[Rfam]
RNA: Bacterial small signal recognition particle RNA
Organism: Vagococcus silagei
RNA sequence: AGGCUAGGGCAAUGGUAGGCUCGCUAAGCGUGUCAGGUCUGGAAGGAAGCAGCACUACGUGAGUGCUACCAUGUGUCUGAUAAAACUGGUCAUAA
Numbered sequence: 001a002g003g004c005u006a007g008g009g010c011a012a013u014g015g016u017a018g019g020c021u022c023g024c025u026a027a028g029c030g031u032g033u034c035a036g037g038u039c040u041g042g043a044a045g046g047a048a049g050c051a052g053c054a055c056u057a058c059g060u061g062a063g064u065g066c067u068a069c070c071a072u073g074u075g076u077c078u079g080a081u082a083a084a085a086c087u088g089g090u091c092a093u094a095a
Stems, first nucleotide, its partner, number of pairs: 001087002005080001007078003010073001012072006019064006030055004038047003